[Rfam]
RNA: Fluoride riboswitch aptamer (crcB RNA motif)
RNA sequence: UGACUGACAGGCGAUGGGGUUCGCCUUAAACGCAAAAUGCUGAUGACUCCUGCUUUUUA
Dot-bracket structure: .........[[[[..((((((]]]]......((.....))....)))))).........